[Rfam]
RNA sequence: GGCACUGGCGUAGACGCGGUCGAGCAGUCUAAUAUUUGGCGUUCGAUUCAAAUGUUAACUGUAAGACUGUGUCUUCGACGGUGUU
Numbered sequence: 001g002g003c004a005c006u007g008g009c010g011u012a013g014a015c016g017c018g019g020u021c022g023a024g025c026a027g028u029c030u031a032a033u034a035u036u037u038g039g040c041g042u043u044c045g046a047u048u049c050a051a052a053u054g055u056u057a058a059c060u061g062u063a064a065g066a067c068u069g070u071g072u073c074u075u076c077g078a079c080g081g082u083g084u085u
Base pairs, nucleotide, nucleotide: 003083004082005081006080007079009077010076013073014072015071016070017069018068019067020066021065024062025061026060027059028058031056032055033054034053035052036051037050